[Rfam]
Nucleotides: 100
Stems, first nucleotide, its partner, number of pairs: 018086002021083005030048006058076006
Number, partner (000 for none) and nucleotide at each position: 001000c002000c003000g004000a005000a006000c007000a008000u009000u010000g011000g012000a013000a014000u015000c016000a017000u018086c019085u020000a021083u022082c023081g024080u025079a026000u027000a028000u029000c030048c031047u032046c033045g034044g035043c036000a037000a038000u039000a040000u041000g042000g043035g044034c045033u046032g047031a048030g049000a050000g051000u052000c053000u054000c055000u056000a057000c058076c059075g060074g061073g062072a063071a064000c065000c066000g067000c068000a069000a070000a071063u072062u073061c074060c075059c076058g077000a078000c079025u080024a081023c082022g083021a084000c085019g086018g087000a088000u089000g090000u091000g092000g093000g094000a095000u096000u097000g098000u099000a100000u